[Rfam]
RNA sequence: AUCGCGGGAGACGACUGGCGUUGGGUGGGUGACCACCAGGGAGUUGCGUCGGAGCGCAUCGACCGCCUGGGUGCCUCCU
Numbered sequence: 001a002u003c004g005c006g007g008g009a010g011a012c013g014a015c016u017g018g019c020g021u022u023g024g025g026u027g028g029g030u031g032a033c034c035a036c037c038a039g040g041g042a043g044u045u046g047c048g049u050c051g052g053a054g055c056g057c058a059u060c061g062a063c064c065g066c067c068u069g070g071g072u073g074c075c076u077c078c079u
Base pairs, nucleotide, nucleotide: 003048004047005046006045011044012043015040016039017067018066019065020064025036026035027034028033056074057073058072059071060070

This 79-nucleotide RNA from Nocardioides acrostichi belongs to the Rfam family "ZMP/ZTP riboswitch aptamer (pfl RNA motif)". Rfam 15.1 lists 3,295 matches to the family in 2,545 species. Its family is annotated with regulation of purine nucleotide biosynthetic process and one-carbon metabolic process in the Gene Ontology.